[Rfam]
A member of the RNA family "ZMP/ZTP riboswitch aptamer (pfl RNA motif)" from Rudaeicoccus suwonensis, 82 nucleotides long.
RNA sequence: AUCGUGGUGCACGACUGGCGCAGGUGGGUCACCACCGGGGAGUGCACCGCUCGAGAUCGCAUCGCCCGCCUGGGUGCCCUCA
Dot-bracket structure: ...(((((((((..(([[[[...((((....))))..))..)))))))))........(((((...]]]]..))))).....
The source organism's lineage runs through Bacteria, Bacillati, Actinomycetes, Micrococcales and Rudaeicoccus. The match comes from Rfam's covariance-model search (62 bits).